[Rfam]
RNA: Bacillaceae-1 RNA
Organism: Sporosarcina limicola
RNA sequence: AUUCAAGGGAAAGGCAUUCUAAGUUCGCCGCGUCCUGCGGCAAUGGAUGCAUGAUUCGCAUCUGAUUA
Numbered sequence: 001a002u003u004c005a006a007g008g009g010a011a012a013g014g015c016a017u018u019c020u021a022a023g024u025u026c027g028c029c030g031c032g033u034c035c036u037g038c039g040g041c042a043a044u045g046g047a048u049g050c051a052u053g054a055u056u057c058g059c060a061u062c063u064g065a066u067u068a
Stems, first nucleotide, its partner, number of pairs: 014050006027041005055068001059064001